[Rfam]
RNA: Ribosomal S15 leader
RNA sequence: UUGGGUAGCUGAAUUAGAGAUCGGCGCCCGUUUUUUAUAGUCAAAAUAAAGUGGAGUUUAGAAUGUCUCUAAGCGUUGAAGCAAAAGCUAAAAUCGUUGCAGAGUACGGCCGUGGCGCA
Numbered sequence: 001u002u003g004g005g006u007a008g009c010u011g012a013a014u015u016a017g018a019g020a021u022c023g024g025c026g027c028c029c030g031u032u033u034u035u036u037a038u039a040g041u042c043a044a045a046a047u048a049a050a051g052u053g054g055a056g057u058u059u060a061g062a063a064u065g066u067c068u069c070u071a072a073g074c075g076u077u078g079a080a081g082c083a084a085a086a087g088c089u090a091a092a093a094u095c096g097u098u099g100c101a102g103a104g105u106a107c108g109g110c111c112g113u114g115g116c117g118c119a
Base pairs, nucleotide, nucleotide: 008025009024010023011022012021052071053070054069055068056067